The family of this 104-nucleotide RNA from Cannabis sativa is "MIR535 microRNA precursor family". It scores 68 bits against the family's covariance model. Its family is annotated with RISC complex and miRNA-mediated post-transcriptional gene silencing in the Gene Ontology. For this family Rfam cites "Conservation and divergence of microRNAs and their functions in Euphorbiaceous plants" (Zeng et al., Nucleic Acids Res, 2010). Rfam 15.1 lists 544 matches to the family in 108 species.
RNA sequence: UGUAUUGUAUGACAACGGGAGAGAGCACGCAUGUGCACAGUCACGCACGUUUCGUUUUUCAUGAAUAUUAACACAAGCGUGCUCUCUCUCGUUGUCAUCCCAAC
Numbered sequence: 001u002g003u004a005u006u007g008u009a010u011g012a013c014a015a016c017g018g019g020a021g022a023g024a025g026c027a028c029g030c031a032u033g034u035g036c037a038c039a040g041u042c043a044c045g046c047a048c049g050u051u052u053c054g055u056u057u058u059u060c061a062u063g064a065a066u067a068u069u070a071a072c073a074c075a076a077g078c079g080u081g082c083u084c085u086c087u088c089u090c091g092u093u094g095u096c097a098u099c100c101c102a103a104c
Stems, first nucleotide, its partner, number of pairs: 010097005016091002020087002023084001025082006032075003
Dot-bracket structure: .........(((((.((..((.(.((((((.(((......................................))).)))))).).))..)).))))).......